RNA sequence: CUAAGACGUGCUUACCUCAGCAACGUCUUUGAAAGUAAACAUUCUAAGACGUUGCUGAUGUAAGCAUCGUCUUAGAAUGCCUACUUUAAAAAACGGUGCUGAUAUAAGCACCGUCUUU
Number, nucleotide and partner (000 for none) at each position: 001c000002u000003a000004a116005g115006a114007c113008g111009u110010g109011c108012u107013u106014a105015c000016c000017u102018c101019a100020g000021c098022a097023a000024c095025g094026u093027c000028u091029u090030u089031g000032a087033a086034a085035g084036u083037a082038a000039a000040c079041a078042u077043u076044c075045u074046a073047a072048g071049a070050c069051g068052u000053u066054g065055c064056u063057g000058a000059u000060g000061u000062a000063a056064g055065c054066a053067u000068c051069g050070u049071c048072u047073u046074a045075g044076a043077a042078u041079g040080c000081c000082u037083a036084c035085u034086u033087u032088a000089a030090a029091a028092a000093a026094c025095g024096g000097u022098g021099c000100u019101g018102a017103u000104a000105u014106a013107a012108g011109c010110a009111c008112c000113g007114u006115c005116u004117u000118u000